[Rfam]
RNA sequence: UAGUUACGAAGAGAGCUUUCUUCAGUCCACACAUGGGAGGUGAUAAGGUUCAAUUUGCUGCCGACUCAUUCAUCCAAAUGCUGAGGUUAGAUAGUCAAAAGCAUCUCAGUGGCUGAAUGAAUGAAGCGGGAGUACAAGUUGUGUCUUAAGCUUCCUGUGCUUGGACUGAAGGGAGCUCCCUUUUACCUGUUU
Numbered sequence: 001u002a003g004u005u006a007c008g009a010a011g012a013g014a015g016c017u018u019u020c021u022u023c024a025g026u027c028c029a030c031a032c033a034u035g036g037g038a039g040g041u042g043a044u045a046a047g048g049u050u051c052a053a054u055u056u057g058c059u060g061c062c063g064a065c066u067c068a069u070u071c072a073u074c075c076a077a078a079u080g081c082u083g084a085g086g087u088u089a090g091a092u093a094g095u096c097a098a099a100a101g102c103a104u105c106u107c108a109g110u111g112g113c114u115g116a117a118u119g120a121a122u123g124a125a126g127c128g129g130g131a132g133u134a135c136a137a138g139u140u141g142u143g144u145c146u147u148a149a150g151c152u153u154c155c156u157g158u159g160c161u162u163g164g165a166c167u168g169a170a171g172g173g174a175g176c177u178c179c180c181u182u183u184u185a186c187c188u189g190u191u192u
Base pairs, nucleotide, nucleotide: 013178014177015176016175017174018173019172020171023168024167025166026165027164028163029162036155058132059131061129062128063127067123068122069121070120075115
MIR159 microRNA precursor family: a 192-nucleotide RNA sequence from Nicotiana sylvestris. The organism belongs to Nicotiana, within Eukaryota. On this family, see Jones-Rhoades and Bartel, Mol Cell 2004: "Computational identification of plant microRNAs and their targets, including a stress-induced miRNA". Its family is annotated with miRNA-mediated post-transcriptional gene silencing and RISC complex in the Gene Ontology.